The record is a 31-nucleotide sequence from Astyanax mexicanus, which matches "Iron response element II" in Rfam. Rfam links the family to the GO term response to iron ion. From the family's description: IRE, TFRC, SLC40A1, SDHB, SLC11A2, CDC42BPA, ACO2, ALAS2_H.SAPIENS, CDC14A, EPAS1, ALAS2, qoxD, Hao1, NDUFS1, transferrin, Aconitate. By type it is a cis-regulatory element.
RNA sequence: GACUUAUCUGUAGCAGUGUCUGCAAUAACUA
Numbered sequence: 001g002a003c004u005u006a007u008c009u010g011u012a013g014c015a016g017u018g019u020c021u022g023c024a025a026u027a028a029c030u031a
Stems, first nucleotide, its partner, number of pairs: 002030001004028004009024005014018001